The record is a 102-nucleotide RNA sequence from Flavobacterium noncentrifugens, which matches "SAM riboswitch aptamer (S box leader)" in Rfam.
Pairs were carried over by alignment from the consensus structure, which is taken from published work.
NCBI's taxonomy places the organism under Bacteria, Pseudomonadati, Bacteroidota, Flavobacteriia, Flavobacterium.
[Rfam]
RNA sequence: CUGUUAUCACGAAAGGCCGAGGGAUAGACCCUGUGAAGCCUUAGCAACCCUUUAUCUUAAAGAAGGUGCUACAUUCUACCCGUUUUUCGGGACAGAUAACCA
Dot-bracket structure: ..((((((....(((((...(((.[[[[)))......)))))((((.((((((.....))))..))))))...(]]]]((((.....))))..)))))))..
Numbered sequence: 001c002u003g004u005u006a007u008c009a010c011g012a013a014a015g016g017c018c019g020a021g022g023g024a025u026a027g028a029c030c031c032u033g034u035g036a037a038g039c040c041u042u043a044g045c046a047a048c049c050c051u052u053u054a055u056c057u058u059a060a061a062g063a064a065g066g067u068g069c070u071a072c073a074u075u076c077u078a079c080c081c082g083u084u085u086u087u088c089g090g091g092a093c094a095g096a097u098a099a100c101c102a
Stems, first nucleotide, its partner, number of pairs: 003100006013042005021031003025078004043070004048066002050062004074094001079091004